[Rfam]
RNA sequence: AUCUUUGCGCUUGCAAUGACGCAGUUGGUGAGGGCUUCCCGAGACGCGUCAAUUGCUGGUUGAAAACUAUUUCCAAACCCCGUCUGCGGCCCUCUUCCAAGGGGGCUUCGGACAAUUUUUGGAAGGCCUGUUCCGC
Dot-bracket structure: .................(((((.(((.....(((...)))..))))))))...............................(((((.(((((((......))))))).))))).......................
The family of this 136-nucleotide sequence from Adiantum capillus-veneris is "U4 spliceosomal RNA". The base pairs follow the family's consensus structure, which is taken from published work. It scores 96 bits against the family's covariance model. Rfam's curators write: U4 small nuclear RNA (U4 snRNA) is a component of the major U2-dependent spliceosome.